A member of the RNA family "Small nucleolar RNA Z266" from Dioscorea zingiberensis, 92 nucleotides long. The literature on the family includes a 2003 paper in Nucleic Acids Res by Chen et al., "The high diversity of snoRNAs in plants: identification and comparative study of 120 snoRNA genes from Oryza sativa". By type it is a C/D-box small nucleolar RNA.
RNA sequence: GAGUGGUAAGUAUGAUGAGACAAUUAGAUGUGUGAAGAUUGUUCUCUUAUGAACAAAACUCCGAGGCUUAUUGAAAUUCUGACUUGCCAUUC
Numbered sequence: 001g002a003g004u005g006g007u008a009a010g011u012a013u014g015a016u017g018a019g020a021c022a023a024u025u026a027g028a029u030g031u032g033u034g035a036a037g038a039u040u041g042u043u044c045u046c047u048u049a050u051g052a053a054c055a056a057a058a059c060u061c062c063g064a065g066g067c068u069u070a071u072u073g074a075a076a077u078u079c080u081g082a083c084u085u086g087c088c089a090u091u092c
Stems, first nucleotide, its partner, number of pairs: 001092010